[Rfam]
RNA sequence: UUCUUAUUCAGAGCAGGCGGAGGGACAAGCCCUACGAAGCCCGGCAACCGGUCGAUUGACACGGUGCUAAUUCUUGCAGCCUUCAAGCGACGGCUGACAAAUAAGAA
Numbered sequence: 001u002u003c004u005u006a007u008u009c010a011g012a013g014c015a016g017g018c019g020g021a022g023g024g025a026c027a028a029g030c031c032c033u034a035c036g037a038a039g040c041c042c043g044g045c046a047a048c049c050g051g052u053c054g055a056u057u058g059a060c061a062c063g064g065u066g067c068u069a070a071u072u073c074u075u076g077c078a079g080c081c082u083u084c085a086a087g088c089g090a091c092g093g094c095u096g097a098c099a100a101a102u103a104a105g106a107a
Base pairs, nucleotide, nucleotide: 001107002106003105004104005103006102007101008100013042016041017040018039022032023031024030026076027075028074029073043068044067045066046065048064049063050060052058072099077096078095079094080093081092
Description:
The family of this 107-nucleotide RNA sequence from Planococcus lenghuensis is "SAM riboswitch aptamer (S box leader)". About the family: The SAM riboswitch is found upstream of a number of genes which code for proteins involved in methionine or cysteine biosynthesis in Gram-positive bacteria. Its family is annotated with regulation of gene expression in the Gene Ontology. NCBI's taxonomy places the organism under Bacteria, Bacilli, Caryophanales, Caryophanaceae, Planococcus.